A member of the RNA family "SAM riboswitch aptamer (S box leader)" from Paenibacillus sp. FSL H7-0737, 140 nucleotides long. The organism belongs to Paenibacillus, within Bacteria. The family's consensus secondary structure is taken from published work. A search with the family's covariance model found it, with a score of 76 bits.

RNA sequence: AUCUUAUCGAGAGUGGCGGAGGGAUAGGCCCGAUGAAGCCCGGCAACCGAUUUGUAUACAGCGCGAUUAGCGUUAUGUACAAAUGUCAUGGUGCUAAUUCCUACAAUGACGCAAGGUUUGUGGUCGUUGGCAGAUGAGAA
Numbered sequence: 001a002u003c004u005u006a007u008c009g010a011g012a013g014u015g016g017c018g019g020a021g022g023g024a025u026a027g028g029c030c031c032g033a034u035g036a037a038g039c040c041c042g043g044c045a046a047c048c049g050a051u052u053u054g055u056a057u058a059c060a061g062c063g064c065g066a067u068u069a070g071c072g073u074u075a076u077g078u079a080c081a082a083a084u085g086u087c088a089u090g091g092u093g094c095u096a097a098u099u100c101c102u103a104c105a106a107u108g109a110c111g112c113a114a115g116g117u118u119u120g121u122g123g124u125c126g127u128u129g130g131c132a133g134a135u136g137a138g139a140a
Base pairs, nucleotide, nucleotide: 002139003138004137005136006135007134008133013041015040016039017038021031022030023029025103026102027101028100042095043094044093045092047091048090049087050086051085099132104129105128106127107126108125109124

Rfam describes the family as follows. The SAM riboswitch is found upstream of a number of genes which code for proteins involved in methionine or cysteine biosynthesis in Gram-positive bacteria.